[Rfam]
RNA sequence: GCUUAUUCUCAGGGCGGGGUGCAAUUCCCCACCGGCGGUAAACCUGGCUAAAGUAUUGCACAGGAAGCCCGCGAGCGCUCAGGUUGCAUUGCAGUCUGAGGUCAGCAGAUCCGGUGUAAUUCCGGGGCCGACGGUAAUAGUCCAGAUGGGAGAAAGUAACG
Numbered sequence: 001g002c003u004u005a006u007u008c009u010c011a012g013g014g015c016g017g018g019g020u021g022c023a024a025u026u027c028c029c030c031a032c033c034g035g036c037g038g039u040a041a042a043c044c045u046g047g048c049u050a051a052a053g054u055a056u057u058g059c060a061c062a063g064g065a066a067g068c069c070c071g072c073g074a075g076c077g078c079u080c081a082g083g084u085u086g087c088a089u090u091g092c093a094g095u096c097u098g099a100g101g102u103c104a105g106c107a108g109a110u111c112c113g114g115u116g117u118a119a120u121u122c123c124g125g126g127g128c129c130g131a132c133g134g135u136a137a138u139a140g141u142c143c144a145g146a147u148g149g150g151a152g153a154a155a156g157u158a159a160c161g
Base pairs, nucleotide, nucleotide: 003159004158005157006156007155009153010152017029018028019027031141032140033130034129035072036071037070038069067128068127075106076105110126111125112124113123114122133143134142
Description: Rfam assigns this 161-nucleotide sequence from Sodalis-like symbiont of Bactericera trigonica to the family "FMN riboswitch aptamer (RFN element)". It scores 104 bits against the family's covariance model.